[Rfam]
RNA sequence: GUCGAGCCUGGUAGCGUUGGCUUGUAACCCGAGCGAGGGCAACAGGGUGGUGGGAUGUUAUGGUCAGUUGAUGGGUAUGGGUUUGGUCGUGCAGAACUUGGCUUGCCCGUUUCAAGUCAAGCAACUGACCCAUACGACACGGACGAAAGCUCGAGCCAUAUGGGAUCCUAAAGCGGAGGACACCGCGUUAGGCUGGUUUCACAGAGCAGCGUUUACCUCCCGCUCUUGACGGUGGAAGGAUCACAGGCUGGUGCACGACCCGCCUCGACACGCCCAUUGGGCCAACACUACUCAGACCACCAUUUUU
Numbered sequence: 001g002u003c004g005a006g007c008c009u010g011g012u013a014g015c016g017u018u019g020g021c022u023u024g025u026a027a028c029c030c031g032a033g034c035g036a037g038g039g040c041a042a043c044a045g046g047g048u049g050g051u052g053g054g055a056u057g058u059u060a061u062g063g064u065c066a067g068u069u070g071a072u073g074g075g076u077a078u079g080g081g082u083u084u085g086g087u088c089g090u091g092c093a094g095a096a097c098u099u100g101g102c103u104u105g106c107c108c109g110u111u112u113c114a115a116g117u118c119a120a121g122c123a124a125c126u127g128a129c130c131c132a133u134a135c136g137a138c139a140c141g142g143a144c145g146a147a148a149g150c151u152c153g154a155g156c157c158a159u160a161u162g163g164g165a166u167c168c169u170a171a172a173g174c175g176g177a178g179g180a181c182a183c184c185g186c187g188u189u190a191g192g193c194u195g196g197u198u199u200c201a202c203a204g205a206g207c208a209g210c211g212u213u214u215a216c217c218u219c220c221c222g223c224u225c226u227u228g229a230c231g232g233u234g235g236a237a238g239g240a241u242c243a244c245a246g247g248c249u250g251g252u253g254c255a256c257g258a259c260c261c262g263c264c265u266c267g268a269c270a271c272g273c274c275c276a277u278u279g280g281g282c283c284a285a286c287a288c289u290a291c292u293c294a295g296a297c298c299a300c301c302a303u304u305u306u307u
Base pairs, nucleotide, nucleotide: 001040002039003038004023005022006021007020008019010017028037030035044306045305046304047303048302049301050300051299052298053297056294057293059290060289061287062286064284068280069279070278071277072276073275074274075273076272079266080265081264083262085260086259088257089256090255092253093252098251099250100249101248102247103246104245105244107239108238110237111236112235113234114233116230117229118228119227120226121225123224125222127167128166129164130163131162132161133160134159136157138155140153141152142151144149168173175220176219177218178217179216185212186211187210188209193204194203195202
The record is a 307-nucleotide RNA sequence from Ensete ventricosum, which matches "Plant signal recognition particle RNA" in Rfam. Pairs were carried over by alignment from the consensus structure, which is taken from published work. The family's RNA type in Rfam is non-coding RNA gene. The family is grouped with related families in Rfam's "SRP clan".